Description
Rfam assigns this 157-nucleotide sequence from a Lachnospiraceae bacterium to the family "Clostridiales-1 RNA". The base pairs follow the family's consensus structure, which is taken from published work. The family has 194 seed sequences and 1,172 matches in Rfam 15.1. A search with the family's covariance model found it, with a score of 128 bits. It is annotated as a small RNA. The source organism's lineage runs through Bacteria, Bacillati, Clostridia, Lachnospirales and Lachnospiraceae.
RNA sequence: AAAAGACAGGGUCAAAAGUAAAAAAUCCGAUUGUGCUUGCACAAAAAGGAUUUUUUAUUUGGGACCCGCAAAACACGAGCAUGUAGCGUAAUCACGCGAAAUGCGAGUGUUUUAGAAUUGCGGGAGCUUCAUAGAAGCGAAGCAAUUCGUGUCUUUU
Numbered sequence: 001a002a003a004a005g006a007c008a009g010g011g012u013c014a015a016a017a018g019u020a021a022a023a024a025a026u027c028c029g030a031u032u033g034u035g036c037u038u039g040c041a042c043a044a045a046a047a048g049g050a051u052u053u054u055u056u057a058u059u060u061g062g063g064a065c066c067c068g069c070a071a072a073a074c075a076c077g078a079g080c081a082u083g084u085a086g087c088g089u090a091a092u093c094a095c096g097c098g099a100a101a102u103g104c105g106a107g108u109g110u111u112u113u114a115g116a117a118u119u120g121c122g123g124g125a126g127c128u129u130c131a132u133a134g135a136a137g138c139g140a141a142g143c144a145a146u147u148c149g150u151g152u153c154u155u156u157u
Stems, first nucleotide, its partner, number of pairs: 001157007010066004016060013031044005070113001072111005079104004086097004115148007126138004